[Rfam]
RNA sequence: ACCCAAAGCUCUUUGUCAGGAUGUUUCUUUUAACUCUUUUUUUUAACGAGUGGUAACAACGGAUAUGUCUGUUAAAGCAUUGGGAAAGUAAUAUUAUUCUCGUUACUCCAGUUUUCGUUUUGAAAACACAAUGAGCAAUGUUUUUGAAGAAAUGCUUUGUUUUAAAGCUGUUUCUUUGAUUAUUUGAAUAAUGAAGCUUUUUUGAGUUGAGUAACGGUUUGAAGGUCCAGUUGUUCUGAGACUUUCAUCAAUUCGUACUCGUAGUAAAAAGCUUCACAUCG
Numbered sequence: 001a002c003c004c005a006a007a008g009c010u011c012u013u014u015g016u017c018a019g020g021a022u023g024u025u026u027c028u029u030u031u032a033a034c035u036c037u038u039u040u041u042u043u044u045a046a047c048g049a050g051u052g053g054u055a056a057c058a059a060c061g062g063a064u065a066u067g068u069c070u071g072u073u074a075a076a077g078c079a080u081u082g083g084g085a086a087a088g089u090a091a092u093a094u095u096a097u098u099c100u101c102g103u104u105a106c107u108c109c110a111g112u113u114u115u116c117g118u119u120u121u122g123a124a125a126a127c128a129c130a131a132u133g134a135g136c137a138a139u140g141u142u143u144u145u146g147a148a149g150a151a152a153u154g155c156u157u158u159g160u161u162u163u164a165a166a167g168c169u170g171u172u173u174c175u176u177u178g179a180u181u182a183u184u185u186g187a188a189u190a191a192u193g194a195a196g197c198u199u200u201u202u203u204g205a206g207u208u209g210a211g212u213a214a215c216g217g218u219u220u221g222a223a224g225g226u227c228c229a230g231u232u233g234u235u236c237u238g239a240g241a242c243u244u245u246c247a248u249c250a251a252u253u254c255g256u257a258c259u260c261g262u263a264g265u266a267a268a269a270a271g272c273u274u275c276a277c278a279u280c281g
Base pairs, nucleotide, nucleotide: 003083004082005081006080019070020069021068022067023066024065026063027062028061030045032043033042094191095190096189097188098187099186101140102139103138104137106135107134108133111127112126113125114124115123116122145178146177147176148175149174154168155167156166157165158164159163193275194274195273196272198270199269200268201267208261209260210259211258212257216254217253220247221246222245223244224243225242226241